Rfam assigns this 73-nucleotide RNA sequence from Notodromas monacha to the family "mir-252 microRNA precursor family".
On this family, see Li et al., BMC Genomics 2009: "Direct sequencing and expression analysis of a large number of miRNAs in Aedes aegypti and a multi-species survey of novel mosquito miRNAs".
Gene Ontology terms of the family: miRNA-mediated post-transcriptional gene silencing and RISC complex.
Its Rfam clan is "mir-252 microRNA precursor family".
RNA sequence: ACUGUGUUCUAAGUAGUGGUGCCGCAGGUAACAGAAAGGCAAUUUACCUGCUCAUCCCUACUUACCAUGCAGC
Number, nucleotide and partner (000 for none) at each position: 001a000002c072003u071004g070005u069006g068007u067008u000009c000010u064011a063012a062013g061014u060015a059016g058017u000018g056019g055020u000021g000022c000023c000024g051025c050026a049027g048028g047029u046030a045031a000032c000033a000034g000035a000036a000037a000038g000039g000040c000041a000042a000043u000044u000045u030046a029047c028048c027049u026050g025051c024052u000053c000054a000055u019056c018057c000058c016059u015060a014061c013062u012063u011064a010065c000066c000067a007068u006069g005070c004071a003072g002073c000